[Rfam]
RNA sequence: UGACCAAGGGGCCGGGACGUUCUGAUUGUUUCAGGAUCGGAGUGACCUAGGGGUACAGGGAGUGCCUCCGCAAGGGCCGGGUCAGGAAAGAG
Numbered sequence: 001u002g003a004c005c006a007a008g009g010g011g012c013c014g015g016g017a018c019g020u021u022c023u024g025a026u027u028g029u030u031u032c033a034g035g036a037u038c039g040g041a042g043u044g045a046c047c048u049a050g051g052g053g054u055a056c057a058g059g060g061a062g063u064g065c066c067u068c069c070g071c072a073a074g075g076g077c078c079g080g081g082u083c084a085g086g087a088a089a090g091a092g
Stems, first nucleotide, its partner, number of pairs: 001084005010078004014048003018044001020042008050068007
A member of the RNA family "ivy-DE RNA", 92 nucleotides long.